L2-Alphaproteobacteria ribosomal protein leader: a 103-nucleotide RNA.
RNA sequence: AGGCACCUACGGGGGCCUAUACCACCUGCCACCUUCGGGGGGCUUACAUCGCGGGGGAUGGCCAUCGGGCCGAACUCGCACUGCUAGAAACGGAAGACAGUAA
Numbered sequence: 001a002g003g004c005a006c007c008u009a010c011g012g013g014g015g016c017c018u019a020u021a022c023c024a025c026c027u028g029c030c031a032c033c034u035u036c037g038g039g040g041g042g043c044u045u046a047c048a049u050c051g052c053g054g055g056g057g058a059u060g061g062c063c064a065u066c067g068g069g070c071c072g073a074a075c076u077c078g079c080a081c082u083g084c085u086a087g088a089a090a091c092g093g094a095a096g097a098c099a100g101u102a103a
Base pairs, nucleotide, nucleotide: 001018002017003016004015006014007013008012026083028081030078
By type it is a cis-regulatory leader. The family's consensus secondary structure is taken from published work. The literature on the family includes a 2020 paper in BMC Microbiol by Eckert and Weinberg, "Discovery of 20 novel ribosomal leader candidates in bacteria and archaea".